Description:
The family of this 92-nucleotide RNA sequence from Danio rerio is "mir-7 microRNA precursor family". For this family Rfam cites "Identification of novel genes coding for small expressed RNAs" (Lagos-Quintana et al., Science, 2001). Rfam 15.1 lists 2,589 matches to the family in 797 species. This family represents the microRNA (miRNA) precursor mir-7.
RNA sequence: UAGUCCACUGCGGUGUGGAAGACUAGUGAUUUUGUUGUUUUUUUAUGAUGGAAGGAGACAACAAGUCAUAGUCUGCCUCACGGCUCUGAGAU
Numbered sequence: 001u002a003g004u005c006c007a008c009u010g011c012g013g014u015g016u017g018g019a020a021g022a023c024u025a026g027u028g029a030u031u032u033u034g035u036u037g038u039u040u041u042u043u044u045a046u047g048a049u050g051g052a053a054g055g056a057g058a059c060a061a062c063a064a065g066u067c068a069u070a071g072u073c074u075g076c077c078u079c080a081c082g083g084c085u086c087u088g089a090g091a092u
Base pairs, nucleotide, nucleotide: 004089005088011083013081014080015079017077018076020074021073022072023071024070026069027068028067029066030065031064032063034062035061036060037059038058039057

It scores 66 bits against the family's covariance model. Gene Ontology terms of the family: miRNA-mediated post-transcriptional gene silencing and RISC complex.